[Rfam]
RNA sequence: CGUCACCUCACUGGAGAGAGGCGGGCUGCUUGCCUGCCCACCGAAGGGGCAAGUCGCGGCGCACCCGCAGGGUGCAGCGGCCAAUCUCUCAGGUAAAGCGGACAGCGAGGGCAGA
Numbered sequence: 001c002g003u004c005a006c007c008u009c010a011c012u013g014g015a016g017a018g019a020g021g022c023g024g025g026c027u028g029c030u031u032g033c034c035u036g037c038c039c040a041c042c043g044a045a046g047g048g049g050c051a052a053g054u055c056g057c058g059g060c061g062c063a064c065c066c067g068c069a070g071g072g073u074g075c076a077g078c079g080g081c082c083a084a085u086c087u088c089u090c091a092g093g094u095a096a097a098g099c100g101g102a103c104a105g106c107g108a109g110g111g112c113a114g115a
Base pairs, nucleotide, nucleotide: 006110007109008108009107011105012104013103020038021037022036023035024034025033040094041093042092043090044089047088048087049086053081054080055079056078057077